[Rfam]
RNA: glmS glucosamine-6-phosphate activated ribozyme aptamer
Organism: Holtiella tumoricola
RNA sequence: AAAAUGAAUAAAGCGCCAGAACUUGAAGCGAUCAAGUUGACGAGGACUAGAGUUAUCGAAAAUUCGGCGGAUGCUCUAGAGGGAUCACAACCUAACAAGAUGACAAAUCUAUAAGGUGACUUAGAGGACAAAACAUCUUGAGUGAGUUCC
Numbered sequence: 001a002a003a004a005u006g007a008a009u010a011a012a013g014c015g016c017c018a019g020a021a022c023u024u025g026a027a028g029c030g031a032u033c034a035a036g037u038u039g040a041c042g043a044g045g046a047c048u049a050g051a052g053u054u055a056u057c058g059a060a061a062a063u064u065c066g067g068c069g070g071a072u073g074c075u076c077u078a079g080a081g082g083g084a085u086c087a088c089a090a091c092c093u094a095a096c097a098a099g100a101u102g103a104c105a106a107a108u109c110u111a112u113a114a115g116g117u118g119a120c121u122u123a124g125a126g127g128a129c130a131a132a133a134c135a136u137c138u139u140g141a142g143u144g145a146g147u148u149c150c
Stems, first nucleotide, its partner, number of pairs: 020038007047079005056067004080093003096140007109126002112123004